[Rfam]
RNA sequence: UGCAAGAGCACUCUGUAUCACAUAAAAUUUUUAUAACCUCAUGUGAGACAAUUUAAAACCUUGCUAGAUUAAAUUAAAGCUGCGAUUUAUCCAUGUGAUCGGGUACUUAAAACGAUUCACAUUGAAAACGCGCCUUACACUAG
Numbered sequence: 001u002g003c004a005a006g007a008g009c010a011c012u013c014u015g016u017a018u019c020a021c022a023u024a025a026a027a028u029u030u031u032u033a034u035a036a037c038c039u040c041a042u043g044u045g046a047g048a049c050a051a052u053u054u055a056a057a058a059c060c061u062u063g064c065u066a067g068a069u070u071a072a073a074u075u076a077a078a079g080c081u082g083c084g085a086u087u088u089a090u091c092c093a094u095g096u097g098a099u100c101g102g103g104u105a106c107u108u109a110a111a112a113c114g115a116u117u118c119a120c121a122u123u124g125a126a127a128a129c130g131c132g133c134c135u136u137a138c139a140c141u142a143g
Stems, first nucleotide, its partner, number of pairs: 002064005014050003018046006027039001070142002076135001079133002083130002090125002093122006102113001
Dot-bracket structure: .(((((.......(((.((((((...(...........).)))))).))).........))))).....((....(..((..((.....((.((((((...(..........)...)))))).))...)).)).).....)).